[Rfam]
RNA: MIR6135 microRNA precursor family
Organism: Panax ginseng
RNA sequence: AUGAAGUUUAUUUUGGGGUAAGUUGAUCAAUUGACUAAUAGAAUACUGACACGCAGGCGAGGUUGUAUGCGUAUCAGUAUUUUAUUGAUCAAUUAACUAAUUUAUCAAAAAAAUAACUUCAU
Numbered sequence: 001a002u003g004a005a006g007u008u009u010a011u012u013u014u015g016g017g018g019u020a021a022g023u024u025g026a027u028c029a030a031u032u033g034a035c036u037a038a039u040a041g042a043a044u045a046c047u048g049a050c051a052c053g054c055a056g057g058c059g060a061g062g063u064u065g066u067a068u069g070c071g072u073a074u075c076a077g078u079a080u081u082u083u084a085u086u087g088a089u090c091a092a093u094u095a096a097c098u099a100a101u102u103u104a105u106c107a108a109a110a111a112a113a114u115a116a117c118u119u120c121a122u
Base pairs, nucleotide, nucleotide: 001122002121003120004119005118006117007116008115011111012110013109014108018105019104020103021102022101023100024099025098027096029094030093031092032091033090034089036087037086038085039084040083041082042081043080044079045078047076048075049074051072052071054069055068